Background: The record is a 67-nucleotide RNA sequence from Psychrobacillus glaciei, which matches "Bacillaceae-1 RNA" in Rfam. A search with the family's covariance model found it, with a score of 58 bits. By type it is a small RNA.
[Rfam]
RNA sequence: CUCCGAGGAAUGAAGAAUAAGAGCGCCACAUCGUGUGGUAACGUCUUCGUGACCAACAUCCUGUUGA
Numbered sequence: 001c002u003c004c005g006a007g008g009a010a011u012g013a014a015g016a017a018u019a020a021g022a023g024c025g026c027c028a029c030a031u032c033g034u035g036u037g038g039u040a041a042c043g044u045c046u047u048c049g050u051g052a053c054c055a056a057c058a059u060c061c062u063g064u065u066g067a
Stems, first nucleotide, its partner, number of pairs: 011049006025039005054066004